Annotation:
Small nucleolar RNA SNORA30/SNORA37 family: a 129-nucleotide RNA sequence from Myotis davidii. On this family, see Huttenhofer et al., EMBO J 2001: "RNomics: an experimental approach that identifies 201 candidates for novel, small, non-messenger RNAs in mouse". It scores 116 bits against the family's covariance model. The family has 11 seed sequences and 407 matches in Rfam 15.1. Rfam describes the family as follows. The members of this family belong to the H/ACA class of snoRNAs that guide the sites of modification of uridines to pseudouridines. This family includes human ACA30 (SNORA30), ACA37 (SNORA37) and the mouse homolog MBI-26. Both ACA37 and ACA30 are predicted to guide the pseudouridylation of residue U4643 of 28S rRNA. The source organism's lineage runs through Eukaryota, Craniata, Dipnotetrapodomorpha, Theria and Myotis. Rfam links the family to the GO terms RNA processing and nucleolus. The family's consensus secondary structure was predicted with RNAfold.
RNA sequence: CUAGCACUUUCACAAGCCCUCCCCCAGGCAGUGGGGCCGGGAUUUGGUGGCUGGUGCUGAAAGAAAAGCCUUGAUUGAAUCUUUGCCCUAGGACUGUGCCAGUGGCUGCUGUCACUCAAUGACAUACUG
Numbered sequence: 001c002u003a004g005c006a007c008u009u010u011c012a013c014a015a016g017c018c019c020u021c022c023c024c025c026a027g028g029c030a031g032u033g034g035g036g037c038c039g040g041g042a043u044u045u046g047g048u049g050g051c052u053g054g055u056g057c058u059g060a061a062a063g064a065a066a067a068g069c070c071u072u073g074a075u076u077g078a079a080u081c082u083u084u085g086c087c088c089u090a091g092g093a094c095u096g097u098g099c100c101a102g103u104g105g106c107u108g109c110u111g112u113c114a115c116u117c118a119a120u121g122a123c124a125u126a127c128u129g
Stems, first nucleotide, its partner, number of pairs: 003058006013046003018041003022036004068123001070121001071119004076114002079112002083108001085106003088102002091099001